[Rfam]
RNA sequence: UCGGGGUAAAAUAGUGAGUAGCCGACAUGGGGAAGUGAUCAACCCUUGAGAUAAGUUUAAAUCUGUUUUUUUUACUCCAUAAACAUUUUAACGUGGGUAAAAAUAUUUGUCUUGGGGUAUAAAAAAAAACCAGAUUUAAAUUUAACUGAAGGGUUGAUGGUGUAUUUUCUCCAUGAAGGCUGCUCACUAUUUUACCCCAA
Numbered sequence: 001u002c003g004g005g006g007u008a009a010a011a012u013a014g015u016g017a018g019u020a021g022c023c024g025a026c027a028u029g030g031g032g033a034a035g036u037g038a039u040c041a042a043c044c045c046u047u048g049a050g051a052u053a054a055g056u057u058u059a060a061a062u063c064u065g066u067u068u069u070u071u072u073u074a075c076u077c078c079a080u081a082a083a084c085a086u087u088u089u090a091a092c093g094u095g096g097g098u099a100a101a102a103a104u105a106u107u108u109g110u111c112u113u114g115g116g117g118u119a120u121a122a123a124a125a126a127a128a129a130c131c132a133g134a135u136u137u138a139a140a141u142u143u144a145a146c147u148g149a150a151g152g153g154u155u156g157a158u159g160g161u162g163u164a165u166u167u168u169c170u171c172c173a174u175g176a177a178g179g180c181u182g183c184u185c186a187c188u189a190u191u192u193u194a195c196c197c198c199a200a
Base pairs, nucleotide, nucleotide: 003198004197005196006195007194008193009192010191011190012189013188014187015186016185017184018183019182020181021180022179023178026175027174028173029172030171031170032169033168034167035166038161039160040159041158042154043153044152046150047149049147050146052144053143054142055141057139058138059137060136061135062134063133064132065131066129067128068127069126070125071124072123073119074118075117076116077115078114079113086102087101088100089099090098092096
Dot-bracket structure: ..(((((((((((((((((((((..((((((((((..(((((((.((.((.((((.(((((((((((((((((((((((......(((((.(...).)))))..........)))))))...))))))).))))))))).)))).)).)).)))...))))....))))))))))..)))))))))))))))))))))..